The record is a 94-nucleotide sequence from Geotalea daltonii, which matches "Selenocysteine transfer RNA" in Rfam. Pairs were carried over by alignment from the consensus structure, which is taken from published work. For this family Rfam cites "Eukaryotic selenocysteine tRNA has the 9/4 secondary structure" (Mizutani and Goto, FEBS Lett, 2000).
RNA sequence: GGAAGCACGACCGUCGCUGGUGGGCGGCCCGGUCUUCAAAACCGGUGAGGGGGAUGAGAAAUCUCCCUGGUGGGUUCGAUUCCCAUGUGCUUCC
Numbered sequence: 001g002g003a004a005g006c007a008c009g010a011c012c013g014u015c016g017c018u019g020g021u022g023g024g025c026g027g028c029c030c031g032g033u034c035u036u037c038a039a040a041a042c043c044g045g046u047g048a049g050g051g052g053g054a055u056g057a058g059a060a061a062u063c064u065c066c067c068u069g070g071u072g073g074g075u076u077c078g079a080u081u082c083c084c085a086u087g088u089g090c091u092u093c094c
Base pairs, nucleotide, nucleotide: 001094002093003092004091005090006089007088008087009086012027015024017022029045030044031043032042033041048068049067050066051065052064071085072084073083074082